[Rfam]
RNA sequence: UUGACCUGUAAAUGAUAACGAUUAUUAUUGUCAGCAACUGGUCGCGAGACUGGUUGGAUAAACUGAAAGCUCACAGGUCGGACUCUCAGGUUAUCUCCUCAUCAGGCUAAUCACGGUUUUUGACCCGGCUUUUUGCCGGGUCUUUUUUUU
Numbered sequence: 001u002u003g004a005c006c007u008g009u010a011a012a013u014g015a016u017a018a019c020g021a022u023u024a025u026u027a028u029u030g031u032c033a034g035c036a037a038c039u040g041g042u043c044g045c046g047a048g049a050c051u052g053g054u055u056g057g058a059u060a061a062a063c064u065g066a067a068a069g070c071u072c073a074c075a076g077g078u079c080g081g082a083c084u085c086u087c088a089g090g091u092u093a094u095c096u097c098c099u100c101a102u103c104a105g106g107c108u109a110a111u112c113a114c115g116g117u118u119u120u121u122g123a124c125c126c127g128g129c130u131u132u133u134u135g136c137c138g139g140g141u142c143u144u145u146u147u148u149u150u
Stems, first nucleotide, its partner, number of pairs: 035056009063089004068084002070080001097106003122142008
Dot-bracket structure: ..................................(((((((((....)))))))))......((((.(((.........)..)).)))).......(((....)))...............((((((((.....))))))))........